[Rfam]
RNA sequence: GACGGGGCACGAAAGGUCCCGUGAUAAACGACCCGGGCGCGAGCCCGCAGUAGGACUCACGGGAAGCCGGUGUUCCGUCGUACGUUUUGAAAAACGA
Numbered sequence: 001g002a003c004g005g006g007g008c009a010c011g012a013a014a015g016g017u018c019c020c021g022u023g024a025u026a027a028a029c030g031a032c033c034c035g036g037g038c039g040c041g042a043g044c045c046c047g048c049a050g051u052a053g054g055a056c057u058c059a060c061g062g063g064a065a066g067c068c069g070g071u072g073u074u075c076c077g078u079c080g081u082a083c084g085u086u087u088u089g090a091a092a093a094a095c096g097a
Base pairs, nucleotide, nucleotide: 001079002078003077004076005075006074007073008072009071010070015068016067019062020061021060022059023058024057029053034047035046036045037044038043083096084095085094
Rfam assigns this 97-nucleotide part of an RNA from a halophilic archaeon to the family "Archaeal large subunit ribosomal RNA". On this family, see Yusupov et al., Science 2001: "Crystal structure of the ribosome at 5.5 A resolution".